[Rfam]
RNA sequence: GUGUGUUUUGACAGGUGGUGGAACAAAUAUGAGUUAUAUAUUAAUAAGACAAAAUAAAACUCAUAUUAGUUCUACCUCCUGCUGAAGCACCCA
Numbered sequence: 001g002u003g004u005g006u007u008u009u010g011a012c013a014g015g016u017g018g019u020g021g022a023a024c025a026a027a028u029a030u031g032a033g034u035u036a037u038a039u040a041u042u043a044a045u046a047a048g049a050c051a052a053a054a055u056a057a058a059a060c061u062c063a064u065a066u067u068a069g070u071u072c073u074a075c076c077u078c079c080u081g082c083u084g085a086a087g088c089a090c091c092c093a
Stems, first nucleotide, its partner, number of pairs: 001092001003090001005088002008085003012081004017076008026067010